Shown here is a 48-nucleotide RNA sequence from Roseovarius spongiae, a member of the family "SAM/SAH riboswitch aptamer".
The source organism's lineage runs through Bacteria, Pseudomonadati, Rhodobacterales, Roseobacteraceae and Roseovarius.
Its family is annotated with S-adenosylmethionine metabolic process and regulation of gene expression in the Gene Ontology.
[Rfam]
RNA sequence: AGACCGUCACAACGGCUUCCUGGCGUGACGGGGCAUCAUAAUGGAGCG
Numbered sequence: 001a002g003a004c005c006g007u008c009a010c011a012a013c014g015g016c017u018u019c020c021u022g023g024c025g026u027g028a029c030g031g032g033g034c035a036u037c038a039u040a041a042u043g044g045a046g047c048g
Stems, first nucleotide, its partner, number of pairs: 004031007013022002015047003019044002